[Rfam]
RNA sequence: GGGGCGAGCUGCAGCCCCAGUGAAUCAAAUGCAGC
Numbered sequence: 001g002g003g004g005c006g007a008g009c010u011g012c013a014g015c016c017c018c019a020g021u022g023a024a025u026c027a028a029a030u031g032c033a034g035c
Stems, first nucleotide, its partner, number of pairs: 001018005008035006
A member of the RNA family "ribosomal frameshift site" from Lentivirus felimdef, 35 nucleotides long. By type it is a frameshift element.